mir-395 microRNA precursor family: an 86-nucleotide sequence from Hordeum vulgare.
Rfam links the family to the GO terms miRNA-mediated post-transcriptional gene silencing and RISC complex.
Rfam's curators write: mir-395 was identified in both Arabidopsis thaliana and Oryza sativa computationally and was later experimentally verified. mir-395 is thought to target mRNAs coding for ATP sulphurylases.
The family's consensus secondary structure was predicted with PFOLD.
A reference for the family is Jones-Rhoades and Bartel (2004), "Computational Identification of Plant MicroRNAs and Their Targets, Including a Stress-Induced miRNA", Mol Cell.
Lineage of the source: Eukaryota > Viridiplantae > Embryophyta > Petrosaviidae > Hordeum vulgare.
[Rfam]
RNA sequence: GUAUUACCCGGAGUUCCUUUGAUGCACUCCACGAAGCAUCUUUUUGAGGGCUUACGUGAAGUGUUUGGGGGAACUCUCGGUGUAGA
Numbered sequence: 001g002u003a004u005u006a007c008c009c010g011g012a013g014u015u016c017c018u019u020u021g022a023u024g025c026a027c028u029c030c031a032c033g034a035a036g037c038a039u040c041u042u043u044u045u046g047a048g049g050g051c052u053u054a055c056g057u058g059a060a061g062u063g064u065u066u067g068g069g070g071g072a073a074c075u076c077u078c079g080g081u082g083u084a085g086a
Stems, first nucleotide, its partner, number of pairs: 005082004011076010022066001024064005030058004035053002